Shown here is a 98-nucleotide RNA from Roseburia zhanii, a member of the family "THF (Tetrahydrofolate) riboswitch aptamer".
[Rfam]
RNA sequence: AGCAGAGUAGAAGCUGGUGCGUUAAGUGUCAUGUGAACAGGGAGUUGUCAUGUGAACGAAAAGGAAAUCUUGCGAUACCAGCUUCGCAUCCCGCUGCU
Numbered sequence: 001a002g003c004a005g006a007g008u009a010g011a012a013g014c015u016g017g018u019g020c021g022u023u024a025a026g027u028g029u030c031a032u033g034u035g036a037a038c039a040g041g042g043a044g045u046u047g048u049c050a051u052g053u054g055a056a057c058g059a060a061a062a063g064g065a066a067a068u069c070u071u072g073c074g075a076u077a078c079c080a081g082c083u084u085c086g087c088a089u090c091c092c093g094c095u096g097c098u
Stems, first nucleotide, its partner, number of pairs: 001098005010085010020074003026057002029055008040091003044087001061071004